RNA sequence: CUCUGAUUUAGGAAAUAUCUCAGGGCAUAAAGGAG
Numbered sequence: 001c002u003c004u005g006a007u008u009u010a011g012g013a014a015a016u017a018u019c020u021c022a023g024g025g026c027a028u029a030a031a032g033g034a035g
Stems, first nucleotide, its partner, number of pairs: 001025005009017002
Notes: Shown here is a 35-nucleotide sequence, a member of the family "L31-Firmicutes ribosomal protein leader". The family's RNA type in Rfam is cis-regulatory leader. The family's consensus secondary structure is taken from published work. It is one of the family's seed sequences.